[Rfam]
RNA sequence: GUUCACCUUUUGCGCCGUUAAUGUAAAGUUCAUUGUGCCGGCGAAAGAGUUGAACUU
Numbered sequence: 001g002u003u004c005a006c007c008u009u010u011u012g013c014g015c016c017g018u019u020a021a022u023g024u025a026a027a028g029u030u031c032a033u034u035g036u037g038c039c040g041g042c043g044a045a046a047g048a049g050u051u052g053a054a055c056u057u
Base pairs, nucleotide, nucleotide: 001055002054003053004052005051007049008048010046011045013043014042015041016040017039020034021033022032023031
Rfam assigns this 57-nucleotide RNA from Panagrellus redivivus to the family "mir-7950 microRNA precursor family". Rfam's curators put it in the seed alignment. The family's consensus secondary structure was predicted with RNAalifold. Gene Ontology terms of the family: miRNA-mediated post-transcriptional gene silencing and RISC complex.